The record is a 108-nucleotide RNA from Coprobacter secundus, which matches "Bacteroidales small SRP" in Rfam. The family is grouped with related families in Rfam's "SRP clan". The base pairs follow the family's consensus structure, which is taken from published work. A search with the family's covariance model found it, with a score of 118 bits. Taxonomically the source falls in Coprobacter secundus (Bacteria, Pseudomonadati, Bacteroidia, Bacteroidales). A reference for the family is Ryan et al. (2020), "A high-resolution transcriptome map identifies small RNA regulation of metabolism in the gut microbe Bacteroides thetaiotaomicron", Nat Commun.
RNA sequence: UGCAGCCGGGUAAGUCCUACACGGUCAGCUCCCUUCGAAUCCCCCAGGGCUUGACCGCAGCAAGGGUAGCUUGGUUGUAGCGACGCGAUGUAGACAGCUUACCCAUUU
Numbered sequence: 001u002g003c004a005g006c007c008g009g010g011u012a013a014g015u016c017c018u019a020c021a022c023g024g025u026c027a028g029c030u031c032c033c034u035u036c037g038a039a040u041c042c043c044c045c046a047g048g049g050c051u052u053g054a055c056c057g058c059a060g061c062a063a064g065g066g067u068a069g070c071u072u073g074g075u076u077g078u079a080g081c082g083a084c085g086c087g088a089u090g091u092a093g094a095c096a097g098c099u100u101a102c103c104c105a106u107u108u
Stems, first nucleotide, its partner, number of pairs: 008104008017093005022087002024084002